[Rfam]
RNA sequence: AGAACCUUUAACACAGUUCAGAGAGACUGAGAAGGAAACGGAUACACGAGUGGGAUGACUAUGCCUACGUCGUUAAAAAUCCUCAUGCCUUCUUGGCAUGAGGAUUUUUUGUU
Numbered sequence: 001a002g003a004a005c006c007u008u009u010a011a012c013a014c015a016g017u018u019c020a021g022a023g024a025g026a027c028u029g030a031g032a033a034g035g036a037a038a039c040g041g042a043u044a045c046a047c048g049a050g051u052g053g054g055a056u057g058a059c060u061a062u063g064c065c066u067a068c069g070u071c072g073u074u075a076a077a078a079a080u081c082c083u084c085a086u087g088c089c090u091u092c093u094u095g096g097c098a099u100g101a102g103g104a105u106u107u108u109u110u111g112u113u
Base pairs, nucleotide, nucleotide: 005035006034007033008032009031014029015028016027017026018025046073047072048071049070050068051067052066053065054064076108077107078106079105080104081103082102083101084100085099086098087097088096089095
RNA: PyrR binding site